[Rfam]
RNA sequence: UUGCGGGCGACUGCAAAUCUGAAAGGAGCCAUAAGCAAAGAUAGCGUAUUGACGCAUAGAAACCCGAUAGAAGGCUGACAGAGGGUGGUAAGCGUGCCGGAUUCAUGGAUUGCGAAGAGCUCGAAAAUCAACCGUAACCGUUUACAGUAAAUCAGGCAAUACCUGUUGAAAGCAGUAAUGUU
Dot-bracket structure: ((((((....))))))...........(.(((..((...(((((.((((((...........((.(((.....(((...((.((..(((..(((................))).....)))................)).))...)))..))).)))))))))))))....))....))).)

Overview: A member of the RNA family "Group II catalytic intron D1-D4-3" from a Dysgonamonadaceae bacterium, 182 nucleotides long. NCBI's taxonomy places the organism under Bacteria, Pseudomonadati, Bacteroidia, Bacteroidales, Dysgonomonadaceae. The match comes from Rfam's covariance-model search (79 bits). Its family is annotated with Group II intron splicing in the Gene Ontology.